[Rfam]
RNA sequence: UUAGAAUGUACGCCGGCUAAGAUCGCCACGUCCUGUGGCAACACCGGCACUAGCACAUCCUGUGCG
Numbered sequence: 001u002u003a004g005a006a007u008g009u010a011c012g013c014c015g016g017c018u019a020a021g022a023u024c025g026c027c028a029c030g031u032c033c034u035g036u037g038g039c040a041a042c043a044c045c046g047g048c049a050c051u052a053g054c055a056c057a058u059c060c061u062g063u064g065c066g
Base pairs, nucleotide, nucleotide: 012048013047014046015045016044025039026038027037028036029035053065054064055063056062